[Rfam]
RNA: Insect-specific Flavivirus exoribonuclease-resistant RNA element
Organism: Donggang virus
RNA sequence: UGCAGUCAGGCCUCACGAAUGUGAGCCACCGGAUGGGACUAGACGGUGCUGCCUGCGCGUCCCCCCACGCAAUCAAGCUAGAUGGUUGUCAUGGGC
Numbered sequence: 001u002g003c004a005g006u007c008a009g010g011c012c013u014c015a016c017g018a019a020u021g022u023g024a025g026c027c028a029c030c031g032g033a034u035g036g037g038a039c040u041a042g043a044c045g046g047u048g049c050u051g052c053c054u055g056c057g058c059g060u061c062c063c064c065c066c067a068c069g070c071a072a073u074c075a076a077g078c079u080a081g082a083u084g085g086u087u088g089u090c091a092u093g094g095g096c
Stems, first nucleotide, its partner, number of pairs: 003032001010027001012025004035063003046058004